Background
This 102-nucleotide RNA sequence from Anaerostipes sp. 992a belongs to the Rfam family "ZMP/ZTP riboswitch aptamer (pfl RNA motif)". Its family is annotated with one-carbon metabolic process and regulation of purine nucleotide biosynthetic process in the Gene Ontology.

Nucleotides: 102
Base pairs, nucleotide, nucleotide: 003073004072005071007069008068009067010066011065012064015061016060017090018089019088020087021086046058047057048056049055081095082094083093
Number, partner (000 for none) and nucleotide at each position: 001000a002000u003073a004072g005071g006000a007069u008068u009067a010066u011065g012064u013000g014000a015061c016060u017090g018089g019088c020087g021086g022000a023000u024000a025000g026000a027000c028000a029000g030000a031000g032000g033000a034000g035000a036000c037000u038000u039000u040000g041000u042000c043000u044000g045000a046058g047057u048056a049055g050000a051000a052000a053000a054000a055049c056048u057047a058046c059000a060016g061015g062000g063000a064012g065011c066010a067009u068008a069007a070000g071005c072004c073003u074000g075000a076000u077000g078000a079000a080000c081095g082094c083093c084000g085000a086021c087020c088019g089018c090017c091000u092000g093083g094082g095081c096000a097000a098000g099000c100000c101000g102000c